Overview:
Rfam assigns this 249-nucleotide sequence from Daucus carota to the family "Early nodulin 40". Lineage of the source: Eukaryota > Tracheophyta > Euphyllophyta > Spermatophyta > Daucus carota. The match comes from Rfam's covariance-model search (80 bits). By type it is a non-coding RNA gene.
[Rfam]
RNA sequence: AUUAAGUUCACUAAUCUUUCAAUGGAUUGAGAAAAACAUGGCAAUUUGGAGUCAUGCUCCAAAUUUAGAUAGUUUGUGCAUGCUUUAGCCAUCUGCAUGGUCUGCAAAACACUAGAAAGCUUGGGCAUGCACUGCAGAAUUUGAAGAUGAAGCUUCUGAGAAGUUCUAUCAAUGAGUCUGAGGGCUUUGGCUAAUGUGUGGCAAACUGGCAAGUCACAGAAAGGCAAUGAACUCGAUUCUUCGAGUUUU
Numbered sequence: 001a002u003u004a005a006g007u008u009c010a011c012u013a014a015u016c017u018u019u020c021a022a023u024g025g026a027u028u029g030a031g032a033a034a035a036a037c038a039u040g041g042c043a044a045u046u047u048g049g050a051g052u053c054a055u056g057c058u059c060c061a062a063a064u065u066u067a068g069a070u071a072g073u074u075u076g077u078g079c080a081u082g083c084u085u086u087a088g089c090c091a092u093c094u095g096c097a098u099g100g101u102c103u104g105c106a107a108a109a110c111a112c113u114a115g116a117a118a119g120c121u122u123g124g125g126c127a128u129g130c131a132c133u134g135c136a137g138a139a140u141u142u143g144a145a146g147a148u149g150a151a152g153c154u155u156c157u158g159a160g161a162a163g164u165u166c167u168a169u170c171a172a173u174g175a176g177u178c179u180g181a182g183g184g185c186u187u188u189g190g191c192u193a194a195u196g197u198g199u200g201g202c203a204a205a206c207u208g209g210c211a212a213g214u215c216a217c218a219g220a221a222a223g224g225c226a227a228u229g230a231a232c233u234c235g236a237u238u239c240u241u242c243g244a245g246u247u248u249u
Stems, first nucleotide, its partner, number of pairs: 050058003072206006090196003230247005